[Rfam]
RNA sequence: UUUUCGGGGUUUGAUUUAGAAUUCCUACGCUUUACCGAGAAUAAAACUGGCAAAGCGUUUGGAUUCUGAAUCGAAACUUGG
Number, nucleotide and partner (000 for none) at each position: 001u000002u000003u000004u000005c000006g000007g000008g000009g000010u075011u074012u073013g072014a071015u070016u069017u068018a067019g066020a065021a000022u063023u062024c061025c000026u000027a058028c057029g056030c055031u054032u053033u052034a000035c050036c049037g000038a000039g000040a000041a000042u000043a000044a000045a000046a000047c000048u000049g036050g035051c000052a033053a032054a031055g030056c029057g028058u027059u000060u000061g024062g023063a022064u000065u020066c019067u018068g017069a016070a015071u014072c013073g012074a011075a010076a000077c000078u000079u000080g000081g000
A member of the RNA family "mir-927 microRNA precursor family" from Agrilus planipennis, 81 nucleotides long.
The base pairs follow the family's consensus structure, which was predicted with RNAalifold.
A reference for the family is Berezikov et al. (2010), "Evolutionary flux of canonical microRNAs and mirtrons in Drosophila", Nat Genet.
Taxonomically the source falls in Agrilus (Eukaryota, Eumetazoa, Altocrustacea, Pterygota).
The match comes from Rfam's covariance-model search (74 bits).